[Rfam]
RNA sequence: AGCUUUGCACAGUGGCAAUAUUGUAGCCAAUGAGGUUUAUCUUAGGUGCGAUUAUUGCUAAUUGAAAGUUUUCCCAAUAGCCCAUCAUGAUGACUUGAAAUAUAGUCGGCACUGGCAAUUUUUGACAGUCUCUAUGGAGG
Numbered sequence: 001a002g003c004u005u006u007g008c009a010c011a012g013u014g015g016c017a018a019u020a021u022u023g024u025a026g027c028c029a030a031u032g033a034g035g036u037u038u039a040u041c042u043u044a045g046g047u048g049c050g051a052u053u054a055u056u057g058c059u060a061a062u063u064g065a066a067a068g069u070u071u072u073c074c075c076a077a078u079a080g081c082c083c084a085u086c087a088u089g090a091u092g093a094c095u096u097g098a099a100a101u102a103u104a105g106u107c108g109g110c111a112c113u114g115g116c117a118a119u120u121u122u123u124g125a126c127a128g129u130c131u132c133u134a135u136g137g138a139g140g
Stems, first nucleotide, its partner, number of pairs: 020052005026047003034042002085115002088111002091108005129140004
Dot-bracket structure: ...................(((((.(((.....((.....))..))))))))................................((.((.(((((........))))).))..)).............((((....))))
Shown here is a 140-nucleotide RNA from Otolemur garnettii, a member of the family "U4 spliceosomal RNA". The family is grouped with related families in Rfam's "U4 clan". The family's RNA type in Rfam is spliceosomal small nuclear RNA. A reference for the family is Zwieb (1997), "The uRNA database", Nucleic Acids Res.